[Rfam]
RNA: ylbH leader
Organism: Bacillus salacetis
RNA sequence: AUAAAAAAAACCCCGCAGGAAUUCUGCAGGGCCCUUCUCAUUCCACUAGGGAUAGAAGGCAAAGGGAGAGGAGAAACCGGAGGAAGAACUUAUGGGGAAACGUAAGUCUUCUCCGCGG
Numbered sequence: 001a002u003a004a005a006a007a008a009a010a011c012c013c014c015g016c017a018g019g020a021a022u023u024c025u026g027c028a029g030g031g032c033c034c035u036u037c038u039c040a041u042u043c044c045a046c047u048a049g050g051g052a053u054a055g056a057a058g059g060c061a062a063a064g065g066g067a068g069a070g071g072a073g074a075a076a077c078c079g080g081a082g083g084a085a086g087a088a089c090u091u092a093u094g095g096g097g098a099a100a101c102g103u104a105a106g107u108c109u110u111c112u113c114c115g116c117g118g
Base pairs, nucleotide, nucleotide: 011031012030013029015027016026017025018024019023032066033065034064035063036062041054044051078115079114080113081112083111084110085109086108088107089106090105091104092103